RNA sequence: CAAGGUUUACUUCGAUGAUGUGCGACGGAGUCCGAGGUAAACCGGCAAGAUUUUUUGGACCUCCAUCGCACCGCAUUCAGGCAAUCCCGCCUGAGGCGGCCCGAACACGGGAGAGAACGCUGAGCGUUACAAC
Numbered sequence: 001c002a003a004g005g006u007u008u009a010c011u012u013c014g015a016u017g018a019u020g021u022g023c024g025a026c027g028g029a030g031u032c033c034g035a036g037g038u039a040a041a042c043c044g045g046c047a048a049g050a051u052u053u054u055u056u057g058g059a060c061c062u063c064c065a066u067c068g069c070a071c072c073g074c075a076u077u078c079a080g081g082c083a084a085u086c087c088c089g090c091c092u093g094a095g096g097c098g099g100c101c102c103g104a105a106c107a108c109g110g111g112a113g114a115g116a117a118c119g120c121u122g123a124g125c126g127u128u129a130c131a132a133c
Stems, first nucleotide, its partner, number of pairs: 004043009071099004076094001078093004
The family of this 133-nucleotide RNA sequence from Corynebacterium epidermidicanis is "atpB RNA". By type it is a cis-regulatory element. The base pairs follow the family's consensus structure, which is taken from published work.